Shown here is a 75-nucleotide RNA sequence from Pseudonocardia oroxyli, a member of the family "ASpks TB sRNA". It scores 73 bits against the family's covariance model.

RNA sequence: CUUCAGCGAGCCGAGGUGCAGCGGCCGGUCCGCGGCCCGCUCCCGACCGUAGGUGGCCAGCAGGGCCUGCGCCUC
Dot-bracket structure: ..............(.(.....).).....(((....(....(.(.(((....))).).)....)...)))....
Background: The literature on the family includes a 2009 paper in Mol Microbiol by Arnvig and Young, "Identification of small RNAs in Mycobacterium tuberculosis". The organism belongs to Pseudonocardia, within Bacteria.